[Rfam]
Small nucleolar RNA SNORA65: a 132-nucleotide RNA from Dromaius novaehollandiae. On this family, see Huttenhofer et al., EMBO J 2001: "RNomics: an experimental approach that identifies 201 candidates for novel, small, non-messenger RNAs in mouse". NCBI's taxonomy places the organism under Eukaryota, Metazoa, Deuterostomia, Gnathostomata, Dromaius. From the family's description: U65 belongs to the H/ACA class of snoRNAs which are thought to guide the sites of modification of uridines to pseudouridines. Its Rfam clan is "SNORA65 clan".

RNA sequence: CCCGCCACUGUGCCUGUCUCAUAAUGCAGUGACUAGUACAAUCCAGAGGUGAGCUGACAGAAAAUGCCAACUCAGGAAACAGAGUUAUUCUUCUCGUAGUGGGUAACUUUGUGCCGAAGUUUGGGAACACAA
Number, nucleotide and partner (000 for none) at each position: 001c000002c000003c000004g000005c049006c048007a000008c046009u045010g044011u000012g000013c000014c000015u000016g000017u000018c036019u035020c000021a000022u031023a030024a000025u000026g000027c000028a000029g000030u023031g022032a000033c000034u000035a019036g018037u000038a000039c000040a000041a000042u000043c000044c010045a009046g008047a000048g006049g005050u000051g000052a000053g000054c000055u000056g000057a000058c000059a000060g000061a000062a000063a000064a000065u125066g000067c124068c123069a121070a120071c119072u118073c000074a000075g115076g114077a000078a000079a000080c111081a110082g109083a108084g107085u106086u000087a000088u103089u102090c101091u000092u000093c000094u000095c000096g000097u000098a000099g000100u000101g090102g089103g088104u000105a000106a085107c084108u083109u082110u081111g080112u000113g000114c076115c075116g000117a000118a072119g071120u070121u069122u000123g068124g067125g065126a000127a000128c000129a000130c000131a000132a000